The record is a 97-nucleotide RNA sequence from Heyndrickxia shackletonii, which matches "Guanidine-I riboswitch aptamer" in Rfam. A search with the family's covariance model found it, with a score of 88 bits. NCBI's taxonomy places the organism under Bacteria, Bacillati, Caryophanales, Bacillaceae, Heyndrickxia.
RNA sequence: UUAAAAGUUUUCUAGGGUUCCGCAACUUACAGUUGGUCUGGUCCGAGAGAAAACUCACAGCAUUGCUGUGUCACGGAGGGAUAAAAGCCUGGGAGAU
Numbered sequence: 001u002u003a004a005a006a007g008u009u010u011u012c013u014a015g016g017g018u019u020c021c022g023c024a025a026c027u028u029a030c031a032g033u034u035g036g037u038c039u040g041g042u043c044c045g046a047g048a049g050a051a052a053a054c055u056c057a058c059a060g061c062a063u064u065g066c067u068g069u070g071u072c073a074c075g076g077a078g079g080g081a082u083a084a085a086a087g088c089c090u091g092g093g094a095g096a097u
Base pairs, nucleotide, nucleotide: 007054008053009052010051011050012049015044016043020041021040022038023035024034025033026032027031056070057069058068059067060066061065072092074095078090079089080088